[Rfam]
RNA sequence: AACAAUCUUCAGGGCAGGGUGUGAUUCCCGACCGGCGGUAAAGUCCGCGAGCCACAGUGUGGUUGAUUUGGUGCAACUCCAAAACCGACAGUAAAGUCUGGAUGGAAGAAGAAGAGG
Numbered sequence: 001a002a003c004a005a006u007c008u009u010c011a012g013g014g015c016a017g018g019g020u021g022u023g024a025u026u027c028c029c030g031a032c033c034g035g036c037g038g039u040a041a042a043g044u045c046c047g048c049g050a051g052c053c054a055c056a057g058u059g060u061g062g063u064u065g066a067u068u069u070g071g072u073g074c075a076a077c078u079c080c081a082a083a084a085c086c087g088a089c090a091g092u093a094a095a096g097u098c099u100g101g102a103u104g105g106a107a108g109a110a111g112a113a114g115a116g117g
Base pairs, nucleotide, nucleotide: 006112007111008110009109010108017029018028019027031097032096033087034086035048036047037046038045043085044084051063052062053061067083068082069081070080071079089100090099091098